[Rfam]
RNA: Group II catalytic intron D1-D4-3
RNA sequence: UCCGCCGCGAGGCGGAAUCUGAAGGAUGCCGGAGGCAAAAGCACGGGCCAAGAAAAGCACGGGCCAAGGUACAUGAGCCCAAUUUGAGGCAGUGUUAGUCGGAUGAGCCUCUACACCAAGGCAAAAUCCAAAGCCGCCAAGGGCUGACGCUGUAGACUUGGGUAGUCGCGGGAAAGGAGAGAGG
Numbered sequence: 001u002c003c004g005c006c007g008c009g010a011g012g013c014g015g016a017a018u019c020u021g022a023a024g025g026a027u028g029c030c031g032g033a034g035g036c037a038a039a040a041g042c043a044c045g046g047g048c049c050a051a052g053a054a055a056a057g058c059a060c061g062g063g064c065c066a067a068g069g070u071a072c073a074u075g076a077g078c079c080c081a082a083u084u085u086g087a088g089g090c091a092g093u094g095u096u097a098g099u100c101g102g103a104u105g106a107g108c109c110u111c112u113a114c115a116c117c118a119a120g121g122c123a124a125a126a127u128c129c130a131a132a133g134c135c136g137c138c139a140a141g142g143g144c145u146g147a148c149g150c151u152g153u154a155g156a157c158u159u160g161g162g163u164a165g166u167c168g169c170g171g172g173a174a175a176g177g178a179g180a181g182a183g184g
Stems, first nucleotide, its partner, number of pairs: 001016006029184002036177001042172001044170002046167003050163001078162005083156001089153003093149007101129004107122004